[Rfam]
This 136-nucleotide RNA sequence from Erysipelotrichaceae bacterium MTC7 belongs to the Rfam family "Ribosomal protein L10 leader".
A search with the family's covariance model found it, with a score of 75 bits.
Taxonomically the source falls in Erysipelotrichaceae (Bacteria, Bacillati, Erysipelotrichia, Erysipelotrichales).
It is annotated as a cis-regulatory leader.
RNA sequence: UAACAAUGUUUCAAUAUGCCAUAGACAGUAACGGCGUUAACGCUUAAUCAUGUUACCGAGGUAAAUGAGGAAAAAUGUAAAACUUUUAACUCGUUUUGUCUAUGUAAAUGGAUAAGACGAGUUUUUUAUUCUCUUA
Numbered sequence: 001u002a003a004c005a006a007u008g009u010u011u012c013a014a015u016a017u018g019c020c021a022u023a024g025a026c027a028g029u030a031a032c033g034g035c036g037u038u039a040a041c042g043c044u045u046a047a048u049c050a051u052g053u054u055a056c057c058g059a060g061g062u063a064a065a066u067g068a069g070g071a072a073a074a075a076u077g078u079a080a081a082a083c084u085u086u087u088a089a090c091u092c093g094u095u096u097u098g099u100c101u102a103u104g105u106a107a108a109u110g111g112a113u114a115a116g117a118c119g120a121g122u123u124u125u126u127u128a129u130u131c132u133c134u135u136a
Stems, first nucleotide, its partner, number of pairs: 028056006034043003090121014